Notes
The record is a 94-nucleotide RNA sequence from Branchiostoma lanceolatum, which matches "mir-2060 microRNA precursor family" in Rfam.
[Rfam]
RNA sequence: GUUCACUUGUGUUUAAACAGUGUUCAGCACCAGGGACAGACGUGUUUACCUGUAUGUGGAUGGUGUUCAGCACCAAGGACAGGCAUGUUCACCU
Numbered sequence: 001g002u003u004c005a006c007u008u009g010u011g012u013u014u015a016a017a018c019a020g021u022g023u024u025c026a027g028c029a030c031c032a033g034g035g036a037c038a039g040a041c042g043u044g045u046u047u048a049c050c051u052g053u054a055u056g057u058g059g060a061u062g063g064u065g066u067u068c069a070g071c072a073c074c075a076a077g078g079a080c081a082g083g084c085a086u087g088u089u090c091a092c093c094u
Base pairs, nucleotide, nucleotide: 006083007082008081009080010079020073021072022071023070024069026067027066028065029064030063031062032061034055036053037052038051039050042047
The organism belongs to Branchiostoma, within Eukaryota. The family has 7 seed sequences and 3,696 matches in Rfam 15.1. Its family is annotated with RISC complex and miRNA-mediated post-transcriptional gene silencing in the Gene Ontology. It scores 80 bits against the family's covariance model.